The family of this 75-nucleotide sequence from Ceuthmochares aereus is "Small nucleolar RNA R38". On this family, see Bachellerie et al., Trends Biochem Sci 1995: "Antisense snoRNAs: a family of nucleolar RNAs with long complementarities to rRNA". The source organism's lineage runs through Eukaryota, Tetrapoda, Dinosauria, Saurischia and Ceuthmochares. A search with the family's covariance model found it, with a score of 57 bits.
[Rfam]
RNA sequence: CUGAGCUAGUGAUGAUAAUGUUAUCCCUGUCUGAAAUUGAUCUUUUCUCUGUAGAAUCAUAAUUCUGAGGCUCAG
Numbered sequence: 001c002u003g004a005g006c007u008a009g010u011g012a013u014g015a016u017a018a019u020g021u022u023a024u025c026c027c028u029g030u031c032u033g034a035a036a037u038u039g040a041u042c043u044u045u046u047c048u049c050u051g052u053a054g055a056a057u058c059a060u061a062a063u064u065c066u067g068a069g070g071c072u073c074a075g
Stems, first nucleotide, its partner, number of pairs: 001075007